Shown here is a 366-nucleotide sequence from Nannospalax galili, a member of the family "Bag-1 internal ribosome entry site (IRES)". The family has 15 seed sequences and 248 matches in Rfam 15.1. The match comes from Rfam's covariance-model search (250 bits). On this family, see Coldwell et al., Oncogene 2001: "The p36 isoform of BAG-1 is translated by internal ribosome entry following heat shock". Rfam describes the family as follows. This family represents the bag-1 internal ribosome entry site (IRES). When expressed the BAG-1 protein is known to enhance the anti-apoptotic properties of Bcl-2. Although bag-1 translation usually occurs via a cap-dependent mechanism it has been found to contain a IRES in its 5' UTR. Translation via the IRES has been found to be common following heat shock when cap-dependent scanning is compromised.

[Rfam]
RNA sequence: UGGGCGGUGAACAAACACUGGCCUGGCGGAGCGCGGGGGCGCGGGGAGAUCGCCAGGUGACCGGGAGCCGCUGGGACCCUGGCUGCGCGCACCUCGGCCCUGCCGGGAGCCGCGCCAGUCGGACCCCCGACAGAGCGGGGCUCGCCCACCUCUCAGCGUUCCUCGGGUCGCAGUGCAGCCCGUAGGCAUGACCGAUCCACCAGGGGCGCCGCCGCCUCGGGCGCUUGCAGGCCGCGGCUGAAGAAGAAAGUCCGUUGCCACUCCGCUCAGAGCGAGGUGACCCGCAGCAAGGAGGUGACCAGGGGGAAGAAAGUGAGCCGGAGCAAGGUGAUCCGGGCGAAGGAGGUGACCCUGGCCGAGGAGACG
Numbered sequence: 001u002g003g004g005c006g007g008u009g010a011a012c013a014a015a016c017a018c019u020g021g022c023c024u025g026g027c028g029g030a031g032c033g034c035g036g037g038g039g040c041g042c043g044g045g046g047a048g049a050u051c052g053c054c055a056g057g058u059g060a061c062c063g064g065g066a067g068c069c070g071c072u073g074g075g076a077c078c079c080u081g082g083c084u085g086c087g088c089g090c091a092c093c094u095c096g097g098c099c100c101u102g103c104c105g106g107g108a109g110c111c112g113c114g115c116c117a118g119u120c121g122g123a124c125c126c127c128c129g130a131c132a133g134a135g136c137g138g139g140g141c142u143c144g145c146c147c148a149c150c151u152c153u154c155a156g157c158g159u160u161c162c163u164c165g166g167g168u169c170g171c172a173g174u175g176c177a178g179c180c181c182g183u184a185g186g187c188a189u190g191a192c193c194g195a196u197c198c199a200c201c202a203g204g205g206g207c208g209c210c211g212c213c214g215c216c217u218c219g220g221g222c223g224c225u226u227g228c229a230g231g232c233c234g235c236g237g238c239u240g241a242a243g244a245a246g247a248a249a250g251u252c253c254g255u256u257g258c259c260a261c262u263c264c265g266c267u268c269a270g271a272g273c274g275a276g277g278u279g280a281c282c283c284g285c286a287g288c289a290a291g292g293a294g295g296u297g298a299c300c301a302g303g304g305g306g307a308a309g310a311a312a313g314u315g316a317g318c319c320g321g322a323g324c325a326a327g328g329u330g331a332u333c334c335g336g337g338c339g340a341a342g343g344a345g346g347u348g349a350c351c352c353u354g355g356c357c358g359a360g361g362a363g364a365c366g
Stems, first nucleotide, its partner, number of pairs: 020104003025099003037094003041090002043053001045051002061082005068075001143348004149342001166187001168185001170183001204226007211216001259274001261272003
Dot-bracket structure: ...................(((..(((.........(((.(((.((...)).).......(((((..(......)..)))))......)).)))..)))..)))......................................((((..(................(.(.(............).).)................((((((((....)...)))))))................................(.(((......))).)...................................................................)..))))..................